This 334-nucleotide RNA from Choanephora cucurbitarum belongs to the Rfam family "RNase MRP". The family's RNA type in Rfam is ribozyme.
RNA sequence: GGCAACAGAGAAGAUCCGCACUUGACGUUUAUUGAUAUUACACACGAGAAUGCUUGUCAUUCAAUACCAUUAUACAUCUGUAUAACGCUAGGGAAGGUCUCCAGACUAUAGCGGCUCUUUUCUUAAAGGGAAAGUGCUGUGCCUGUUAAUGGGCAUGACACAUACGCUGCCUUUGGUAGCGUGCUAUCUUUAUCUCUUGGUCGAACAAAGUUUGAGUUUCAAGAGCUCUGAAGAUAUGCCAAUUUCUGGUCAUAGUUAUAGUUAUUGCGGAUACUAUUUUCUUUUUUUCAUAAAAGAAAUAGUUAACAGAAUGGAGCUUACUCUCUCAAGUUGC
Numbered sequence: 001g002g003c004a005a006c007a008g009a010g011a012a013g014a015u016c017c018g019c020a021c022u023u024g025a026c027g028u029u030u031a032u033u034g035a036u037a038u039u040a041c042a043c044a045c046g047a048g049a050a051u052g053c054u055u056g057u058c059a060u061u062c063a064a065u066a067c068c069a070u071u072a073u074a075c076a077u078c079u080g081u082a083u084a085a086c087g088c089u090a091g092g093g094a095a096g097g098u099c100u101c102c103a104g105a106c107u108a109u110a111g112c113g114g115c116u117c118u119u120u121u122c123u124u125a126a127a128g129g130g131a132a133a134g135u136g137c138u139g140u141g142c143c144u145g146u147u148a149a150u151g152g153g154c155a156u157g158a159c160a161c162a163u164a165c166g167c168u169g170c171c172u173u174u175g176g177u178a179g180c181g182u183g184c185u186a187u188c189u190u191u192a193u194c195u196c197u198u199g200g201u202c203g204a205a206c207a208a209a210g211u212u213u214g215a216g217u218u219u220c221a222a223g224a225g226c227u228c229u230g231a232a233g234a235u236a237u238g239c240c241a242a243u244u245u246c247u248g249g250u251c252a253u254a255g256u257u258a259u260a261g262u263u264a265u266u267g268c269g270g271a272u273a274c275u276a277u278u279u280u281c282u283u284u285u286u287u288u289c290a291u292a293a294a295a296g297a298a299a300u301a302g303u304u305a306a307c308a309g310a311a312u313g314g315a316g317c318u319u320a321c322u323c324u325c326u327c328a329a330g331u332u333g334c
Base pairs, nucleotide, nucleotide: 002334003333004332005331006330008327009326010325011324014272015271016270017269018268019267022091023090024089026087027086028085095319096318097317099316100315101314102313165181166180167179168178169177170176183243185241189238191236192235193234194233195231196230199226201224202223209219210218212216273303274302275301276300277299278298279297280296